[Rfam]
RNA sequence: UGGUCGUCGACUUGUGCAACUAUUGUACAAUUUUAAUCAGACUAAUAUUGCACAUGUCCCGGCCAAU
Numbered sequence: 001u002g003g004u005c006g007u008c009g010a011c012u013u014g015u016g017c018a019a020c021u022a023u024u025g026u027a028c029a030a031u032u033u034u035a036a037u038c039a040g041a042c043u044a045a046u047a048u049u050g051c052a053c054a055u056g057u058c059c060c061g062g063c064c065a066a067u
Stems, first nucleotide, its partner, number of pairs: 001065006009058003013054001015052005021047004

A member of the RNA family "mir-92_2 microRNA precursor family" from Acyrthosiphon pisum, 67 nucleotides long. Its family is annotated with miRNA-mediated post-transcriptional gene silencing and RISC complex in the Gene Ontology. The sequence is in the family's curated seed alignment. Lineage of the source: Eukaryota > Allotriocarida > Neoptera > Sternorrhyncha > Acyrthosiphon.